[Rfam]
The family of this 124-nucleotide sequence from bacteria symbiont BFo2 of Frankliniella occidentalis is "Enterobacteria greA leader".
The literature on the family includes a 2010 paper in Genome Biol by Naville and Gautheret, "Premature terminator analysis sheds light on a hidden world of bacterial transcriptional attenuation".
The match comes from Rfam's covariance-model search (70 bits).
RNA sequence: GCAAUACUACGUCCCCUUGAGGGGCAAAGUAAACGAUGAUCCGGGAGGAACUCUCGGGUAAAAUAUGUAUCAAACUGAAAAUUCACUCGUCUUGGGUAGCAAACUAUCUGAGGCGGGGUUGUUU
Numbered sequence: 001g002c003a004a005u006a007c008u009a010c011g012u013c014c015c016c017u018u019g020a021g022g023g024g025c026a027a028a029g030u031a032a033a034c035g036a037u038g039a040u041c042c043g044g045g046a047g048g049a050a051c052u053c054u055c056g057g058g059u060a061a062a063a064u065a066u067g068u069a070u071c072a073a074a075c076u077g078a079a080a081a082u083u084c085a086c087u088c089g090u091c092u093u094g095g096g097u098a099g100c101a102a103a104c105u106a107u108c109u110g111a112g113g114c115g116g117g118g119u120u121g122u123u124u
Stems, first nucleotide, its partner, number of pairs: 001040001004037002010035002015029001041048002057071004086117011